[Rfam]
RNA: terC RNA
Organism: Rubellimicrobium rubrum
RNA sequence: UCUGCGGACCGGGCCCCUCUGACGACCUCGCGUCGUGAUGUCGGACCGCAUCG
Numbered sequence: 001u002c003u004g005c006g007g008a009c010c011g012g013g014c015c016c017c018u019c020u021g022a023c024g025a026c027c028u029c030g031c032g033u034c035g036u037g038a039u040g041u042c043g044g045a046c047c048g049c050a051u052c053g
Stems, first nucleotide, its partner, number of pairs: 006047002009044004022036005
Dot-bracket structure: .....((.((((.........(((((.....)))))....)))).))......